[Rfam]
The family of this 135-nucleotide RNA sequence from Equus caballus is "Small nucleolar RNA SNORA9".
RNA sequence: UUGCAAGCCUUCCAGCAUGCUGGGGUCUAGGGUGACUCAGUGCAUUCCUGCAGUGCUUGCUAAAGUGUUCUGAAACGGUUUGAGGCCUUGCCCUGACCCUUCCUCAGAGCAUGGUCAUGGACAUUUCAGACAGUU
Numbered sequence: 001u002u003g004c005a006a007g008c009c010u011u012c013c014a015g016c017a018u019g020c021u022g023g024g025g026u027c028u029a030g031g032g033u034g035a036c037u038c039a040g041u042g043c044a045u046u047c048c049u050g051c052a053g054u055g056c057u058u059g060c061u062a063a064a065g066u067g068u069u070c071u072g073a074a075a076c077g078g079u080u081u082g083a084g085g086c087c088u089u090g091c092c093c094u095g096a097c098c099c100u101u102c103c104u105c106a107g108a109g110c111a112u113g114g115u116c117a118u119g120g121a122c123a124u125u126u127c128a129g130a131c132a133g134u135u
Base pairs, nucleotide, nucleotide: 003060004059005058006057007056008055018044019043020042023038024037025036026035027034071128072127073126074125075124086114087113089111090110091109093107094106095105
The family's consensus secondary structure was predicted with PFOLD.
NCBI's taxonomy places the organism under Eukaryota, Sarcopterygii, Dipnotetrapodomorpha, Theria, Equus.
It scores 124 bits against the family's covariance model.
The family's RNA type in Rfam is H/ACA-box small nucleolar RNA.
Its Rfam clan is "SNORA9 clan".
The family has 36 seed sequences and 1,202 matches in Rfam 15.1.